[Rfam]
RNA sequence: UUUCGCGUUGGGCUUACGCGCCACAAUGCCGUUGCCUACCGCAUGCAGCAGGUGAGUUUUACCCAGGCCCGUGCCGCCAUA
Dot-bracket structure: ....(((.(((((..(((.((......))))).))))).)))........((((.((...((........))))))))...
RNA: antisense RNA of dnaA mRNA
Organism: Enterobacteriaceae bacterium RIT714